[Rfam]
The family of this 155-nucleotide sequence is "cold-seep-1 RNA". It is annotated as a small RNA.
RNA sequence: GGUCCUCACUAAAGCAGUGUCUAGGAAAGACUACGCUAAGGUGGGGGAAGGCUCAUCUCAGGGUGUGGCCAUGCCUUCCACUUCUGGUGCCGGGCGUCGGUCCGCCAGAGCGCAGCACAUUGCGGUGCCGCUCGGGGCUGAUGACCUGGGGACGA
Dot-bracket structure: .(((((((.....((.(((((.......))).)))).............(((.((((....))))..)))..........................(((((((....((((...((((......)))).)))).))))))).....)))))))..
Overview:
Pairs were carried over by alignment from the consensus structure, which is taken from published work.